This 430-nucleotide RNA sequence from Indicator maculatus belongs to the Rfam family "Vertebrate telomerase RNA". Its Rfam clan is "Telomerase clan". Gene Ontology terms of the family: telomerase catalytic core complex, telomere maintenance via telomerase and telomerase activity. It is annotated as a non-coding RNA gene. Taxonomically the source falls in Indicator (Eukaryota, Euteleostomi, Archelosauria, Theropoda). About the family: Telomerase is a ribonucleoprotein reverse transcriptase that synthesises telomeric DNA. Telomerase RNAs differ greatly in sequence and structure between vertebrates, ciliates and yeasts, but they share a 5' pseudoknot structure close to the template sequence. Vertebrate telomerase RNAs have a 3' H/ACA snoRNA-like domain. A reference for the family is Chen et al. (2000), "Secondary structure of vertebrate telomerase RNA", Cell.

RNA sequence: UGGGGCGGCAGGUGGGGAGCCUCCCGCGUAACUAACCCUAAUGGAUGUGGGCGCGCUCCCCGCGACCGUCCGCUGUUUUACUCGCUGACUUUCAGCGGAUGAUGGGAGUAGCUUGGGGGAGGGGUGGAAGGAAAAAACGUCAGCUAGGGGCUCUCCCCACUCCCGCCAUGGGGUCUCCGUGUAUCCCCCUACUGCAGCCGGGGGCCCGCCGCAGAGGCUCCCGCCUCACAUUCUUGAGGCCGCGGUCGGCCGGCUCCUGCUAAUGCCGCCGCGAAGAGUUCGUCUCUGUCAGCCUUAGUGGCGGACGGGAGCGAAAGGGCUCGUUCCCCGCACCGGGAGACUCCAGCAGAGCAAAAAGGACGGCGCCCAUAGUCCACCCGCCGCGCUCCCUCCCCAUGGGGCGCGUGCACCCGGGCCCGCUCCGACACGC
Numbered sequence: 001u002g003g004g005g006c007g008g009c010a011g012g013u014g015g016g017g018a019g020c021c022u023c024c025c026g027c028g029u030a031a032c033u034a035a036c037c038c039u040a041a042u043g044g045a046u047g048u049g050g051g052c053g054c055g056c057u058c059c060c061c062g063c064g065a066c067c068g069u070c071c072g073c074u075g076u077u078u079u080a081c082u083c084g085c086u087g088a089c090u091u092u093c094a095g096c097g098g099a100u101g102a103u104g105g106g107a108g109u110a111g112c113u114u115g116g117g118g119g120a121g122g123g124g125u126g127g128a129a130g131g132a133a134a135a136a137a138c139g140u141c142a143g144c145u146a147g148g149g150g151c152u153c154u155c156c157c158c159a160c161u162c163c164c165g166c167c168a169u170g171g172g173g174u175c176u177c178c179g180u181g182u183a184u185c186c187c188c189c190u191a192c193u194g195c196a197g198c199c200g201g202g203g204g205c206c207c208g209c210c211g212c213a214g215a216g217g218c219u220c221c222c223g224c225c226u227c228a229c230a231u232u233c234u235u236g237a238g239g240c241c242g243c244g245g246u247c248g249g250c251c252g253g254c255u256c257c258u259g260c261u262a263a264u265g266c267c268g269c270c271g272c273g274a275a276g277a278g279u280u281c282g283u284c285u286c287u288g289u290c291a292g293c294c295u296u297a298g299u300g301g302c303g304g305a306c307g308g309g310a311g312c313g314a315a316a317g318g319g320c321u322c323g324u325u326c327c328c329c330g331c332a333c334c335g336g337g338a339g340a341c342u343c344c345a346g347c348a349g350a351g352c353a354a355a356a357a358g359g360a361c362g363g364c365g366c367c368c369a370u371a372g373u374c375c376a377c378c379c380g381c382c383g384c385g386c387u388c389c390c391u392c393c394c395c396a397u398g399g400g401g402c403g404c405g406u407g408c409a410c411c412c413g414g415g416c417c418c419g420c421u422c423c424g425a426c427a428c429g430c
Stems, first nucleotide, its partner, number of pairs: 004167005010161002013159006019151005055109005067101009084144006090137003170344007200329004204320004217312007227300003241273005247268004252261003275287004358422002361419001363418001365416004382407004386401004